[Rfam]
RNA sequence: UCAUAUCUUCAGGGUGGGGUGCAAUUCCCAAUCGGCGGUUAAAGUCCGCGAGCCGAAAGGCAUGAACCGGUGUGAUUCCGGUACCGACGGUUAUAGUCCGGAUGGAAGAAGAUGAUU
Numbered sequence: 001u002c003a004u005a006u007c008u009u010c011a012g013g014g015u016g017g018g019g020u021g022c023a024a025u026u027c028c029c030a031a032u033c034g035g036c037g038g039u040u041a042a043a044g045u046c047c048g049c050g051a052g053c054c055g056a057a058a059g060g061c062a063u064g065a066a067c068c069g070g071u072g073u074g075a076u077u078c079c080g081g082u083a084c085c086g087a088c089g090g091u092u093a094u095a096g097u098c099c100g101g102a103u104g105g106a107a108g109a110a111g112a113u114g115a116u117u
Stems, first nucleotide, its partner, number of pairs: 004114007017029003031097002033086002035049004044084002054060001066082005088100003
Rfam assigns this 117-nucleotide RNA sequence from Pseudoramibacter alactolyticus to the family "FMN riboswitch aptamer (RFN element)". Rfam's curators write: The RFN element is a highly conserved domain that is found frequently in the 5'-untranslated regions of prokaryotic mRNAs that encode for flavin mononucleotide (FMN) biosynthesis and transport proteins. This element is a metabolite-dependent riboswitch that directly binds FMN in the absence of proteins. In Bacillus subtilis, the riboswitch most likely controls gene expression by causing premature transcription termination within the 5' untranslated region of the ribDEAHT operon and precluding access to the ribosome-binding site of ypaA mRNA.The FMN riboswitch structure, reported in present an FMN-bound six-stem junction, adopts a butterfly-like scaffold, stapled together by opposingly directed but nearly identically folded peripheral domains. The family has 146 seed sequences and 6,230 matches in Rfam 15.1. The literature on the family includes a 2002 paper in Nucleic Acids Res by Vitreschak et al., "Regulation of riboflavin biosynthesis and transport genes in bacteria by transcriptional and translational attenuation". The organism belongs to Pseudoramibacter alactolyticus, within Bacteria. A search with the family's covariance model found it, with a score of 110 bits.